[Rfam]
RNA sequence: AGCAUUACAGAGGUAGCGAUGUAAAUGAGUACAAUUUAGAGUCGGCAGACUAUGAAGAAUUGGAAAGGUAAUCAUCGCCGAACAAAAUCUUAGGCAUAAGAUCUUGUGGGGUUAUAGGAAAUACUUAUAACACUCCUACUAAACAGUAGAGGCGCUAGUAAAAUA
Numbered sequence: 001a002g003c004a005u006u007a008c009a010g011a012g013g014u015a016g017c018g019a020u021g022u023a024a025a026u027g028a029g030u031a032c033a034a035u036u037u038a039g040a041g042u043c044g045g046c047a048g049a050c051u052a053u054g055a056a057g058a059a060u061u062g063g064a065a066a067g068g069u070a071a072u073c074a075u076c077g078c079c080g081a082a083c084a085a086a087a088u089c090u091u092a093g094g095c096a097u098a099a100g101a102u103c104u105u106g107u108g109g110g111g112u113u114a115u116a117g118g119a120a121a122u123a124c125u126u127a128u129a130a131c132a133c134u135c136c137u138a139c140u141a142a143a144c145a146g147u148a149g150a151g152g153c154g155c156u157a158g159u160a161a162a163a164u165a
Stems, first nucleotide, its partner, number of pairs: 006160003009156002016078006022071001024069001032062006082107004087102006108134002111131008136149005